Small nucleolar RNA snoR100: a 108-nucleotide RNA sequence from Rhododendron simsii. Lineage of the source: Eukaryota > Embryophyta > Gunneridae > Ericales > Rhododendron. The base pairs follow the family's consensus structure, which was predicted with WAR. Rfam links the family to the GO terms RNA processing and nucleolus.
RNA sequence: CAAUGAAAGAAGUAUGGUAAUAUGCACAUAAAUUGAAUUGGGUCUCUAGGUCUGUUCUUUUUGAUGCUAUGUGGUUUUGAUUUGAGGGCAUAGUUUUACAGCAAAACA
Numbered sequence: 001c002a003a004u005g006a007a008a009g010a011a012g013u014a015u016g017g018u019a020a021u022a023u024g025c026a027c028a029u030a031a032a033u034u035g036a037a038u039u040g041g042g043u044c045u046c047u048a049g050g051u052c053u054g055u056u057c058u059u060u061u062u063g064a065u066g067c068u069a070u071g072u073g074g075u076u077u078u079g080a081u082u083u084g085a086g087g088g089c090a091u092a093g094u095u096u097u098a099c100a101g102c103a104a105a106a107c108a
Stems, first nucleotide, its partner, number of pairs: 012025004040091001042089003050081003054075003